[Rfam]
RNA: Small nucleolar RNA SNORD87
Organism: Terrapene triunguis
RNA sequence: ACUGGCAUAAUGAUGAUUUCCUUUUGCCGUUUACCCAUCUGAAUGUACGGUGAUGUAUAUGUUCAAAUCUGAGAUGCCAGU
Numbered sequence: 001a002c003u004g005g006c007a008u009a010a011u012g013a014u015g016a017u018u019u020c021c022u023u024u025u026g027c028c029g030u031u032u033a034c035c036c037a038u039c040u041g042a043a044u045g046u047a048c049g050g051u052g053a054u055g056u057a058u059a060u061g062u063u064c065a066a067a068u069c070u071g072a073g074a075u076g077c078c079a080g081u
Stems, first nucleotide, its partner, number of pairs: 001081007